[Rfam]
This 124-nucleotide RNA from Eutrema salsugineum belongs to the Rfam family "MIR408 microRNA precursor family". On this family, see Sunkar and Zhu, Plant Cell 2004: "Novel and stress-regulated microRNAs and other small RNAs from Arabidopsis". A search with the family's covariance model found it, with a score of 110 bits.
RNA sequence: AAAUGGUAACGAGACAGACAGGGAACAAGCAGAGCAUGGAUUGAGUUUACUAAAACAUCAAACGACUGUGUUUUGUCUCUUCCCAUGCACUGCCUCUUCCCUGGCUCCCUCUUUCUCUCUUCUC
Numbered sequence: 001a002a003a004u005g006g007u008a009a010c011g012a013g014a015c016a017g018a019c020a021g022g023g024a025a026c027a028a029g030c031a032g033a034g035c036a037u038g039g040a041u042u043g044a045g046u047u048u049a050c051u052a053a054a055a056c057a058u059c060a061a062a063c064g065a066c067u068g069u070g071u072u073u074u075g076u077c078u079c080u081u082c083c084c085a086u087g088c089a090c091u092g093c094c095u096c097u098u099c100c101c102u103g104g105c106u107c108c109c110u111c112u113u114u115c116u117c118u119c120u121u122c123u124c
Base pairs, nucleotide, nucleotide: 016106017105019103020102021101022100023099024098025097027095029093030092031091032090034088035087036086037085038084039083043079044078